A member of the RNA family "MIR168 microRNA precursor family" from Rhamnella rubrinervis, 169 nucleotides long. The source organism's lineage runs through Eukaryota, Viridiplantae, Streptophyta, Rosales and Rhamnella. It scores 98 bits against the family's covariance model. Rfam 15.1 lists 518 matches to the family in 218 species. The literature on the family includes a 2005 paper in Plant Cell by Lu et al., "Novel and mechanical stress-responsive MicroRNAs in Populus trichocarpa that are absent from Arabidopsis". The base pairs follow the family's consensus structure, which was predicted with WAR.
[Rfam]
RNA sequence: UUACUGGUGGUCUCUAAUUCGCUUGGUGCAGGUCGGGAAUUCCUUCGUCUUCUGCCGGUUCGAAUUGGGUAAUUUCCAGAUGACGAACUGGUUGAUUGGUUUGGGAGGAAGGUUGAAGUCGGAAAUGGAUUCCCGCCUUGCAUCAACUGAAUCGGAGACCGCGGUGAAU
Numbered sequence: 001u002u003a004c005u006g007g008u009g010g011u012c013u014c015u016a017a018u019u020c021g022c023u024u025g026g027u028g029c030a031g032g033u034c035g036g037g038a039a040u041u042c043c044u045u046c047g048u049c050u051u052c053u054g055c056c057g058g059u060u061c062g063a064a065u066u067g068g069g070u071a072a073u074u075u076c077c078a079g080a081u082g083a084c085g086a087a088c089u090g091g092u093u094g095a096u097u098g099g100u101u102u103g104g105g106a107g108g109a110a111g112g113u114u115g116a117a118g119u120c121g122g123a124a125a126u127g128g129a130u131u132c133c134c135g136c137c138u139u140g141c142a143u144c145a146a147c148u149g150a151a152u153c154g155g156a157g158a159c160c161g162c163g164g165u166g167a168a169u
Stems, first nucleotide, its partner, number of pairs: 013156002017152004023146010034135005040129002